RNA: Small nucleolar RNA U3
RNA sequence: AAGAUCAUACUUCACAGGAUCAGUUCUGUAGGAGUUGAUCUCAUUCUCCCUCCCUAACAUGGGAGUUGAUGUAACCAUGAUGAGGAGAAAUAGCCCUCUUCUCUGAGCGUGAGAACGACACGAAUUCUCGAAUUGUUUCGAAAAUUCUGUCAUCAAUGAUCGUUCACCCUUCGCAUUCAAUGCGAGGGGGAUGGGAAGAAGGGCCUUCUGAGUGGU
Numbered sequence: 001a002a003g004a005u006c007a008u009a010c011u012u013c014a015c016a017g018g019a020u021c022a023g024u025u026c027u028g029u030a031g032g033a034g035u036u037g038a039u040c041u042c043a044u045u046c047u048c049c050c051u052c053c054c055u056a057a058c059a060u061g062g063g064a065g066u067u068g069a070u071g072u073a074a075c076c077a078u079g080a081u082g083a084g085g086a087g088a089a090a091u092a093g094c095c096c097u098c099u100u101c102u103c104u105g106a107g108c109g110u111g112a113g114a115a116c117g118a119c120a121c122g123a124a125u126u127c128u129c130g131a132a133u134u135g136u137u138u139c140g141a142a143a144a145u146u147c148u149g150u151c152a153u154c155a156a157u158g159a160u161c162g163u164u165c166a167c168c169c170u171u172c173g174c175a176u177u178c179a180a181u182g183c184g185a186g187g188g189g190g191a192u193g194g195g196a197a198g199a200a201g202g203g204c205c206u207u208c209u210g211a212g213u214g215g216u
Stems, first nucleotide, its partner, number of pairs: 002041004008033001010031002015028005050065005074216005093204005098198006107163003117151004124146001126144001128141004167189001169187007